This 125-nucleotide RNA sequence from Pseudoselenomonas ruminantium belongs to the Rfam family "FMN riboswitch aptamer (RFN element)". The match comes from Rfam's covariance-model search (105 bits). From the family's description: The RFN element is a highly conserved domain that is found frequently in the 5'-untranslated regions of prokaryotic mRNAs that encode for flavin mononucleotide (FMN) biosynthesis and transport proteins. Gene Ontology term of the family: FMN binding.
[Rfam]
RNA sequence: AUUUGUCUUUGAGGCGGGGGGCAGUUCCCCACCGGCGGUAUAGCCCGCAAGCCCUUAUUUCUUCUAGGGCACGAUUCGGUGAAAUUCCGAAGCCGACCGUAUAGUCGGGAUGAGAAAAGGCAUGU
Numbered sequence: 001a002u003u004u005g006u007c008u009u010u011g012a013g014g015c016g017g018g019g020g021g022c023a024g025u026u027c028c029c030c031a032c033c034g035g036c037g038g039u040a041u042a043g044c045c046c047g048c049a050a051g052c053c054c055u056u057a058u059u060u061c062u063u064c065u066a067g068g069g070c071a072c073g074a075u076u077c078g079g080u081g082a083a084a085u086u087c088c089g090a091a092g093c094c095g096a097c098c099g100u101a102u103a104g105u106c107g108g109g110a111u112g113a114g115a116a117a118a119g120g121c122a123u124g125u
Stems, first nucleotide, its partner, number of pairs: 004122007017029003031105002033095002035048004043093002053069001075091005097108003